A member of the RNA family "c-di-GMP-II-GAG riboswitch aptamer", 90 nucleotides long. The sequence is in the family's curated seed alignment. Gene Ontology terms of the family: regulation of gene expression and cyclic-di-GMP binding.
[Rfam]
RNA sequence: UCAUAAGGUAGCGGCCAAGAACCCCGCCCUACGCAAGACGGGCACCCGACAGGGCCGGGGGAGCCAGUGGUGCGACCGGCUACCUUCUAU
Numbered sequence: 001u002c003a004u005a006a007g008g009u010a011g012c013g014g015c016c017a018a019g020a021a022c023c024c025c026g027c028c029c030u031a032c033g034c035a036a037g038a039c040g041g042g043c044a045c046c047c048g049a050c051a052g053g054g055c056c057g058g059g060g061g062a063g064c065c066a067g068u069g070g071u072g073c074g075a076c077c078g079g080c081u082a083c084c085u086u087c088u089a090u
Base pairs, nucleotide, nucleotide: 003088005086006085007084008083009082010081011080013065014064015063022059023058024057026055027054028053029052040077041076042073043072044071045070046069